[Rfam]
RNA sequence: CGAGUGAUUCAUGGCUAAGGAACUCGGCAAAUUAGCCCCGUAACUUCGGGAAAAGGGGCGCCAGUUUAGGCUGGCCGCAGAGAAAUGGCGCAUGCGACUGUUUAUCAAAAACACAUGGCUUUGCAAAUUCGAAAGAAGAGGUAUAAGGCCUGACACCUGCCCGGUGCUGGAAGGUUAAGAGGAGAUGUUAGUUUCGACGAAGCAUUGAAUUGAAGCCCCAGUAAACGGCGGCCGUAACUAUAACGGUCCUAAGGUAGCGAAAUUCCUUGUCGGGUAAGUUCCGACCUGCACGAAUGGUGUAACGAUGUGCGCACUGUCUCGGCCAUGAGCUCG
Numbered sequence: 001c002g003a004g005u006g007a008u009u010c011a012u013g014g015c016u017a018a019g020g021a022a023c024u025c026g027g028c029a030a031a032u033u034a035g036c037c038c039c040g041u042a043a044c045u046u047c048g049g050g051a052a053a054a055g056g057g058g059c060g061c062c063a064g065u066u067u068a069g070g071c072u073g074g075c076c077g078c079a080g081a082g083a084a085a086u087g088g089c090g091c092a093u094g095c096g097a098c099u100g101u102u103u104a105u106c107a108a109a110a111a112c113a114c115a116u117g118g119c120u121u122u123g124c125a126a127a128u129u130c131g132a133a134a135g136a137a138g139a140g141g142u143a144u145a146a147g148g149c150c151u152g153a154c155a156c157c158u159g160c161c162c163g164g165u166g167c168u169g170g171a172a173g174g175u176u177a178a179g180a181g182g183a184g185a186u187g188u189u190a191g192u193u194u195c196g197a198c199g200a201a202g203c204a205u206u207g208a209a210u211u212g213a214a215g216c217c218c219c220a221g222u223a224a225a226c227g228g229c230g231g232c233c234g235u236a237a238c239u240a241u242a243a244c245g246g247u248c249c250u251a252a253g254g255u256a257g258c259g260a261a262a263u264u265c266c267u268u269g270u271c272g273g274g275u276a277a278g279u280u281c282c283g284a285c286c287u288g289c290a291c292g293a294a295u296g297g298u299g300u301a302a303c304g305a306u307g308u309g310c311g312c313a314c315u316g317u318c319u320c321g322g323c324c325a326u327g328a329g330c331u332c333g
Stems, first nucleotide, its partner, number of pairs: 001333004009328008018319003035059005044049001060075006076080001088312007095304002099113003117150007124141001128137003154299004159229003164226002166222005173217003179211002184206005191198002230248006249253001259286001269285006

The record is a 333-nucleotide part of an RNA from Saccharicrinis fermentans, which matches "Bacterial large subunit ribosomal RNA" in Rfam. Lineage of the source: Bacteria > Pseudomonadati > Bacteroidota > Marinilabiliales > Saccharicrinis fermentans. It scores 2735 bits against the family's covariance model.